[Rfam]
RNA sequence: CAGGGACAGUCUGGAAAGUGUCCGCGCCGCCAGGCGGGGGCCGCCGAAGGGGUAAGCUCCGGUCCGCCGGAGUCAAAGCUCUCAGGUCGAAGCGACAGACGGGGGUCC
Numbered sequence: 001c002a003g004g005g006a007c008a009g010u011c012u013g014g015a016a017a018g019u020g021u022c023c024g025c026g027c028c029g030c031c032a033g034g035c036g037g038g039g040g041c042c043g044c045c046g047a048a049g050g051g052g053u054a055a056g057c058u059c060c061g062g063u064c065c066g067c068c069g070g071a072g073u074c075a076a077a078g079c080u081c082u083c084a085g086g087u088c089g090a091a092g093c094g095a096c097a098g099a100c101g102g103g104g105g106u107c108c
Stems, first nucleotide, its partner, number of pairs: 007102001009100005020041004043087003046083002050081003056074001